Shown here is a 257-nucleotide sequence from Oceanobacillus picturae, a member of the family "BsrG". About the family: bsrE, bsrG and bsrH pair through intermolecular interactions with antisense sRNAs. They form type I toxin/antitoxin system that includes an mRNA encoding for a short, toxic peptide (bsrE, bsrG and bsrH) and an antitoxin that is comprised of an antisense RNA. bsrG encodes a 39-amino-acid toxin, and the 180 nucleotide antisense sRNA called SR4 acts as the antitoxin (they overlap by 123 nucleotides). The literature on the family includes a 2008 paper in Gene by Saito et al., "Novel small RNA-encoding genes in the intergenic regions of Bacillus subtilis". By type it is a small RNA. Gene Ontology terms of the family: autolysis and toxin activity.

[Rfam]
Nucleotides: 257
Base pairs, nucleotide, nucleotide: 001229002228004226005225007223008222011219012203013202014201015200016199019152023148024147028141032054033053034052037050038049039048040047061123062122063121064120065119066118067117074088097115098114099113162187163186164185204218205217206216207215235257236256237255238254239253240252241251242250243249244248
Number, partner (000 for none) and nucleotide at each position: 001229u002228a003000c004226g005225u006000a007223c008222a009000u010000a011219a012203g013202g014201c015200u016199u017000u018000u019152c020000a021000u022000a023148g024147g025000g026000c027000c028141u029000g030000g031000u032054u033053c034052a035000u036000g037050c038049c039048c040047u041000u042000u043000u044000u045000u046000a047040g048039g049038g050037g051000g052034u053033g054032a055000g056000a057000g058000a059000a060000u061123g062122a063121c064120a065119g066118u067117a068000u069000u070000c071000g072000a073000a074088a075000c076000u077000c078000u079000u080000a081000u082000g083000u084000u085000u086000u087000c088074u089000g090000u091000g092000g093000c094000a095000u096000u097115u098114g099113c100000c101000a102000g103000u104000u105000u106000g107000a108000u109000u110000g111000u112000c113099g114098c115097a116000g117067u118066g119065c120064u121063g122062u123061c124000u125000u126000u127000u128000a129000a130000u131000c132000a133000a134000a135000a136000a137000a138000a139000a140000u141028a142000a143000c144000c145000a146000c147024c148023c149000a150000u151000a152019g153000c154000c155000u156000a157000g158000c159000a160000a161000g162187c163186a164185a165000u166000u167000a168000g169000u170000g171000u172000g173000g174000u175000u176000a177000u178000u179000u180000u181000u182000u183000u184000c185164u186163u187162g188000c189000u190000c191000u192000a193000a194000u195000u196000u197000g198000u199016g200015a201014g202013c203012u204218g205217c206216c207215c208000c209000c210000u211000c212000g213000a214000a215207g216206g217205g218204c219011u220000a221000c222008u223007g224000u225005g226004c227000u228002u229001a230000a231000a232000a233000c234000c235257g236256u237255u238254u239253g240252g241251u242250g243249u244248u245000g246000a247000u248244a249243g250242c251241a252240c253239c254238a255237a256236g257235c